[Rfam]
The record is a 63-nucleotide sequence from Zymobacter palmae, which matches "Fluoride riboswitch aptamer (crcB RNA motif)" in Rfam. The organism belongs to Zymobacter, within Bacteria.
RNA sequence: CUGACAUCAGGAGAUGGCACACCUCCUUAUAACCGCCCUUUGGCUGAUGGUGCCUGCUGAUAU
Numbered sequence: 001c002u003g004a005c006a007u008c009a010g011g012a013g014a015u016g017g018c019a020c021a022c023c024u025c026c027u028u029a030u031a032a033c034c035g036c037c038c039u040u041u042g043g044c045u046g047a048u049g050g051u052g053c054c055u056g057c058u059g060a061u062a063u
Base pairs, nucleotide, nucleotide: 010026011025012024013023016054017053018052019051020050035044036043037042